[Rfam]
RNA sequence: AAUGGCAGAUGAUGGAUAACCUUAUCCUACACACUGAAUGUAAUGUGUGGACCAAUACUCCGCUUAUUGUCUGAUGCCAUU
Numbered sequence: 001a002a003u004g005g006c007a008g009a010u011g012a013u014g015g016a017u018a019a020c021c022u023u024a025u026c027c028u029a030c031a032c033a034c035u036g037a038a039u040g041u042a043a044u045g046u047g048u049g050g051a052c053c054a055a056u057a058c059u060c061c062g063c064u065u066a067u068u069g070u071c072u073g074a075u076g077c078c079a080u081u
Stems, first nucleotide, its partner, number of pairs: 003079005
Shown here is an 81-nucleotide RNA from Paspalum vaginatum, a member of the family "Small nucleolar RNA R16". For this family Rfam cites "Experimental RNomics: identification of 140 candidates for small non-messenger RNAs in the plant Arabidopsis thaliana" (Marker et al., Curr Biol, 2002). The family's consensus secondary structure was predicted with PFOLD.